[Rfam]
RNA sequence: GCAAGAAUCACAAUCUUAAAAAUGGUAGUGAUAACCCCACAUAAUGUCAUUACAGGAUUGAGCAUACCGGGAAUAUUACUCCUUUCCCGGUGUGUAUGCCU
Number, nucleotide and partner (000 for none) at each position: 001g000002c000003a000004a000005g000006a000007a000008u000009c000010a000011c000012a000013a000014u000015c000016u000017u000018a000019a000020a000021a000022a000023u000024g000025g053026u052027a051028g050029u049030g048031a047032u046033a000034a000035c000036c000037c000038c000039a000040c000041a000042u000043a000044a000045u000046g032047u031048c030049a029050u028051u027052a026053c025054a000055g000056g000057a000058u000059u000060g000061a000062g095063c094064a093065u092066a091067c090068c089069g088070g087071g086072a085073a084074u000075a000076u000077u000078a000079c000080u000081c000082c000083u000084u073085u072086c071087c070088c069089g068090g067091u066092g065093u064094g063095u062096a000097u000098g000099c000100c000101u000
Record summary
RAGATH-23 RNA: a 101-nucleotide sequence. The base pairs follow the family's consensus structure, which is taken from published work. The sequence is in the family's curated seed alignment.